[Rfam]
RNA sequence: GUGACAAUUACGCCAUCGGUCCAUAUAUGUCCCGUAAUACGGUCGGGGCGUUUCUACCGGGUAGCCAGGGAAGGCAUUGUUCCAGGAAUCAUGGAAAACCUUCCAAAACAUCCCGACUAUGGGCUAACAGAAAUCGUUC
Numbered sequence: 001g002u003g004a005c006a007a008u009u010a011c012g013c014c015a016u017c018g019g020u021c022c023a024u025a026u027a028u029g030u031c032c033c034g035u036a037a038u039a040c041g042g043u044c045g046g047g048g049c050g051u052u053u054c055u056a057c058c059g060g061g062u063a064g065c066c067a068g069g070g071a072a073g074g075c076a077u078u079g080u081u082c083c084a085g086g087a088a089u090c091a092u093g094g095a096a097a098a099c100c101u102u103c104c105a106a107a108a109c110a111u112c113c114c115g116a117c118u119a120u121g122g123g124c125u126a127a128c129a130g131a132a133a134u135c136g137u138u139c
Base pairs, nucleotide, nucleotide: 018125019124020123021122022121023120024119025118029049030048031047032046033045034044058115059114060113061112064109
RNA: Purine riboswitch aptamer